[Rfam]
RNA: PyrR binding site
RNA sequence: AAUACCUUUAAUACGGUCCAGAGAGGCCGAGAAGGGCGGCAGCAUAAUUACGUAUAAUUAUGUUUACUUUGUAUAACUUUGCCCUUUUGUCCUCUGUGACAAAAGGGUUUUUAUU
Dot-bracket structure: ....(((((....(((((......))))).)))))........(.(.(.(((((....)))))..).).)..........(((((((((((......))))))))))).......